[Rfam]
Nucleotides: 173
Base pairs, nucleotide, nucleotide: 013095014094015093016092017091018090030082031081032080033079106165107164108163109162122154123153124152125151128148129147130146132144133143
Number, partner (000 for none) and nucleotide at each position: 001000a002000u003000c004000g005000u006000g007000c008000g009000g010000c011000a012000c013095c014094g015093c016092u017091u018090a019000u020000a021000a022000u023000c024000c025000g026000u027000g028000u029000u030082g031081c032080u033079c034000a035000u036000a037000a038000g039000c040000c041000u042000c043000u044000u045000a046000g047000c048000a049000c050000c051000a052000u053000a054000g055000g056000c057000u058000u059000g060000u061000u062000a063000c064000u065000a066000c067000u068000c069000u070000g071000u072000a073000g074000u075000u076000u077000a078000a079033g080032a081031g082030c083000g084000u085000c086000a087000a088000c089000a090018u091017a092016a093015g094014c095013g096000u097000a098000g099000a100000c101000g102000a103000a104000a105000a106165g107164a108163a109162u110000a111000u112000c113000u114000u115000a116000g117000c118000a119000c120000c121000c122154u123153u124152u125151c126000u127000g128148a129147a130146u131000a132144u133143c134000g135000c136000a137000u138000u139000u140000u141000a142000c143133g144132g145000u146130a147129u148128u149000g150000c151125g152124a153123g154122g155000g156000u157000c158000g159000g160000g161000a162109a163108u164107u165106c166000a167000u168000a169000c170000a171000u172000u173000c
Background: This 173-nucleotide sequence from Basidiobolus meristosporus belongs to the Rfam family "small nucleolar RNA snR35". Rfam links the family to the GO terms nucleolus and RNA processing. NCBI's taxonomy places the organism under Eukaryota, Opisthokonta, Basidiobolomycetes, Basidiobolus, Basidiobolus meristosporus. The family's consensus secondary structure was predicted with RNAalifold. For this family Rfam cites "Identification and functional analysis of 20 Box H/ACA small nucleolar RNAs (snoRNAs) from Schizosaccharomyces pombe" (Li et al., J Biol Chem, 2005).